RNA sequence: GGGCAGGAUAUGUGAAGUUAGCUAACAGAUGAAUCUGUCAUCAAAUUUCACCCUGAUCUUAUUCGCACGGUGUGCUCAACGAUAUCCUGCUCUGCGAGGCA
Numbered sequence: 001g002g003g004c005a006g007g008a009u010a011u012g013u014g015a016a017g018u019u020a021g022c023u024a025a026c027a028g029a030u031g032a033a034u035c036u037g038u039c040a041u042c043a044a045a046u047u048u049c050a051c052c053c054u055g056a057u058c059u060u061a062u063u064c065g066c067a068c069g070g071u072g073u074g075c076u077c078a079a080c081g082a083u084a085u086c087c088u089g090c091u092c093u094g095c096g097a098g099g100c101a
Stems, first nucleotide, its partner, number of pairs: 001092009012051006019044001021042001025038005057082002065075004
Dot-bracket structure: (((((((((..((((((.(.(...(((((....)))))...).).)))))).....((......((((...)))).....)).))))))))).........
Shown here is a 101-nucleotide RNA sequence from Nitrosomonas mobilis, a member of the family "traJ-II RNA". Rfam classes the family as a cis-regulatory element. A search with the family's covariance model found it, with a score of 79 bits.